[Rfam]
RNA sequence: CUUGAUCGAACCCACCCACAACGGCCGCUCCGCAGGACGGCCCUGCCCGUACGUGGCCAACAACGCAUGCGCUUC
Numbered sequence: 001c002u003u004g005a006u007c008g009a010a011c012c013c014a015c016c017c018a019c020a021a022c023g024g025c026c027g028c029u030c031c032g033c034a035g036g037a038c039g040g041c042c043c044u045g046c047c048c049g050u051a052c053g054u055g056g057c058c059a060a061c062a063a064c065g066c067a068u069g070c071g072c073u074u075c
Stems, first nucleotide, its partner, number of pairs: 016024002031071003038065002044059002047056003
A member of the RNA family "ASpks TB sRNA" from Mycobacterium pseudokansasii, 75 nucleotides long. NCBI's taxonomy places the organism under Bacteria, Bacillati, Actinomycetes, Mycobacteriales, Mycobacterium.